[Rfam]
RNA: SAM riboswitch aptamer (S box leader)
RNA sequence: UUCUUAUUAAGAGAGGCAGAGGGACUGGCCCUGUGAUGCCUCGGCAGCGGACUCGCAAUCCUUGUGAGUGCUGUGCCAAUUCCAGCAAGCCAUGCGCUUGAAAAAUGAGAA
Numbered sequence: 001u002u003c004u005u006a007u008u009a010a011g012a013g014a015g016g017c018a019g020a021g022g023g024a025c026u027g028g029c030c031c032u033g034u035g036a037u038g039c040c041u042c043g044g045c046a047g048c049g050g051a052c053u054c055g056c057a058a059u060c061c062u063u064g065u066g067a068g069u070g071c072u073g074u075g076c077c078a079a080u081u082c083c084a085g086c087a088a089g090c091c092a093u094g095c096g097c098u099u100g101a102a103a104a105a106u107g108a109g110a111a
Stems, first nucleotide, its partner, number of pairs: 001111008013042005021031003025085004043077004048073002051069006081103001086100005